The family of this 145-nucleotide RNA sequence from Phyllostomus discolor is "Small nucleolar RNA SNORA48".
Rfam links the family to the GO terms nucleolus and RNA processing.
It scores 76 bits against the family's covariance model.
It is annotated as an H/ACA-box small nucleolar RNA.
The family is grouped with related families in Rfam's "SNORA48 clan".
The organism belongs to Phyllostomus, within Eukaryota.
RNA sequence: AGCCCCUGGCAAUGGGCAAGGAGAUACCUCGUUGGUGGUGUUGCUCUUACAUCAGUCAGGGGCAAAGCCAACGCACAGUCCUUAGUUCAGCCUAGCUUGGUGCCUGUGUUGAUGGCUAGAGCUGUUUCAUGCCUGGGGCACAUAA
Number, nucleotide and partner (000 for none) at each position: 001a000002g063003c062004c061005c060006c059007u058008g057009g000010c000011a000012a000013u054014g053015g052016g000017c000018a000019a048020g047021g046022a000023g042024a041025u040026a039027c038028c037029u000030c000031g000032u000033u000034g000035g000036u000037g028038g027039u026040g025041u024042u023043g000044c000045u000046c021047u020048u019049a000050c000051a000052u015053c014054a013055g000056u000057c008058a007059g006060g005061g004062g003063c002064a000065a000066a000067g000068c000069c000070a000071a000072c000073g000074c000075a000076c000077a000078g000079u000080c000081c000082u000083u000084a000085g139086u138087u137088c136089a000090g000091c000092c000093u000094a000095g000096c000097u000098u000099g133100g132101u131102g000103c000104c000105u129106g128107u000108g000109u000110u124111g123112a000113u121114g000115g000116c000117u000118a000119g000120a000121g113122c000123u111124g110125u000126u000127u000128c106129a105130u000131g101132c100133c099134u000135g000136g088137g087138g086139c085140a000141c000142a000143u000144a000145a000